[Rfam]
The record is a 136-nucleotide RNA sequence from Lepisosteus oculatus, which matches "Small nucleolar RNA SNORA69" in Rfam. Rfam's curators write: U69 is a member of the H/ACA class of small nucleolar RNAs (snoRNAs) which act as guides in the the modification of uridines to pseudouridines. It scores 80 bits against the family's covariance model. Its family is annotated with RNA processing and nucleolus in the Gene Ontology.
RNA sequence: ACAGCAGGAUGCAAUUACAGUGCUUCAUUCUGUGGGAGUACUGCCAUUAACCUGCUGAGAGCGAGGUCCUGCCGCAGUCGUCUUCAGCGCCGGCACUCUGGUUGCCGGCGGUGAGUGUUCUGUAGCAGGUACACAG
Numbered sequence: 001a002c003a004g005c006a007g008g009a010u011g012c013a014a015u016u017a018c019a020g021u022g023c024u025u026c027a028u029u030c031u032g033u034g035g036g037a038g039u040a041c042u043g044c045c046a047u048u049a050a051c052c053u054g055c056u057g058a059g060a061g062c063g064a065g066g067u068c069c070u071g072c073c074g075c076a077g078u079c080g081u082c083u084u085c086a087g088c089g090c091c092g093g094c095a096c097u098c099u100g101g102u103u104g105c106c107g108g109c110g111g112u113g114a115g116u117g118u119u120c121u122g123u124a125g126c127a128g129g130u131a132c133a134c135a136g
Stems, first nucleotide, its partner, number of pairs: 003056006018043009068129005074123004084114003088110008
Description:
Rfam 15.1 lists 808 matches to the family in 584 species. NCBI's taxonomy places the organism under Eukaryota, Bilateria, Chordata, Lepisosteidae, Lepisosteus. Pairs were carried over by alignment from the consensus structure, which was predicted with PFOLD.